[Rfam]
RNA sequence: ACAAAAAACAGCCUUCUCUUCCUGGUUCUUCCAGGAGUAAGGAAAAGCUGGGUAGAGAGGAGAGGGGGAAAAAAAA
Numbered sequence: 001a002c003a004a005a006a007a008a009c010a011g012c013c014u015u016c017u018c019u020u021c022c023u024g025g026u027u028c029u030u031c032c033a034g035g036a037g038u039a040a041g042g043a044a045a046a047g048c049u050g051g052g053u054a055g056a057g058a059g060g061a062g063a064g065g066g067g068g069a070a071a072a073a074a075a076a
Stems, first nucleotide, its partner, number of pairs: 014059005021052005029044004
Record summary
The record is a 76-nucleotide RNA from Cebus imitator, which matches "mir-320 microRNA precursor family" in Rfam. A search with the family's covariance model found it, with a score of 62 bits. Gene Ontology terms of the family: miRNA-mediated post-transcriptional gene silencing, RISC complex and negative regulation of gene expression.